[Rfam]
RNA sequence: AAUACAAUGAUGAUAUUGAGGAUUUUGGCAGUGGCGACAUCAGUUGCCGUCAACCUUCAAUCCAGAAAAUGACUUCACUUUCCACUGAGCAUU
Numbered sequence: 001a002a003u004a005c006a007a008u009g010a011u012g013a014u015a016u017u018g019a020g021g022a023u024u025u026u027g028g029c030a031g032u033g034g035c036g037a038c039a040u041c042a043g044u045u046g047c048c049g050u051c052a053a054c055c056u057u058c059a060a061u062c063c064a065g066a067a068a069a070u071g072a073c074u075u076c077a078c079u080u081u082c083c084a085c086u087g088a089g090c091a092u093u
Base pairs, nucleotide, nucleotide: 001093002092003091005089

Shown here is a 93-nucleotide RNA sequence from Leersia perrieri, a member of the family "Small nucleolar RNA Z152/R70/R12/". The source organism's lineage runs through Eukaryota, Streptophyta, Magnoliopsida, Poaceae and Leersia. The family's RNA type in Rfam is C/D-box small nucleolar RNA. A search with the family's covariance model found it, with a score of 54 bits. Rfam links the family to the GO terms nucleolus and RNA processing. For this family Rfam cites "Identification of 66 box C/D snoRNAs in Arabidopsis thaliana: extensive gene duplications generated multiple isoforms predicting new ribosomal RNA 2'-O-methylation sites" (Barneche et al., J Mol Biol, 2001).